[Rfam]
RNA sequence: AUAUGCCUGUGUGGGAAGUGUUCAGCACCAAGGACAGGUGUGUUUCUUGUGGGCAGAUGGUGUUCAGCACCAAGGACAGGUGUAUUUUCUU
Numbered sequence: 001a002u003a004u005g006c007c008u009g010u011g012u013g014g015g016a017a018g019u020g021u022u023c024a025g026c027a028c029c030a031a032g033g034a035c036a037g038g039u040g041u042g043u044u045u046c047u048u049g050u051g052g053g054c055a056g057a058u059g060g061u062g063u064u065c066a067g068c069a070c071c072a073a074g075g076a077c078a079g080g081u082g083u084a085u086u087u088u089c090u091u
Stems, first nucleotide, its partner, number of pairs: 004082007018070005024064007034050005040045001
Description:
This 91-nucleotide RNA from Branchiostoma floridae belongs to the Rfam family "mir-2060 microRNA precursor family". The organism belongs to Branchiostoma, within Eukaryota. The family's consensus secondary structure was predicted with RNAalifold.